[Rfam]
RNA sequence: AGCUCACUAACUGUAAAUCGCUCUGGAUAAGAGCGUCUGCUAAAUGACUAAAA
Numbered sequence: 001a002g003c004u005c006a007c008u009a010a011c012u013g014u015a016a017a018u019c020g021c022u023c024u025g026g027a028u029a030a031g032a033g034c035g036u037c038u039g040c041u042a043a044a045u046g047a048c049u050a051a052a053a
Base pairs, nucleotide, nucleotide: 012042013040014039015038019035020034021033022032023031024030
RNA: UnaL2 LINE 3' element